[Rfam]
RNA sequence: AGUUAGCCUGCGUUAGCGAUUGCAGUGGUAUCCUUUUUACGUCAGUUUGAGUGAUGCGACGAUAGAAGCAUUGUAUCGAAAACAGAGUAAAAAGAUUUAACGAAAAGCGCGACCCGAU
Numbered sequence: 001a002g003u004u005a006g007c008c009u010g011c012g013u014u015a016g017c018g019a020u021u022g023c024a025g026u027g028g029u030a031u032c033c034u035u036u037u038u039a040c041g042u043c044a045g046u047u048u049g050a051g052u053g054a055u056g057c058g059a060c061g062a063u064a065g066a067a068g069c070a071u072u073g074u075a076u077c078g079a080a081a082a083c084a085g086a087g088u089a090a091a092a093a094g095a096u097u098u099a100a101c102g103a104a105a106a107g108c109g110c111g112a113c114c115c116g117a118u
Stems, first nucleotide, its partner, number of pairs: 016110003020106002025101002030096003036091005043085001
Shown here is a 118-nucleotide sequence from Mesoflavibacter sp. HG96, a member of the family "Flavo-1 RNA". The organism belongs to Mesoflavibacter, within Bacteria. It is annotated as a small RNA.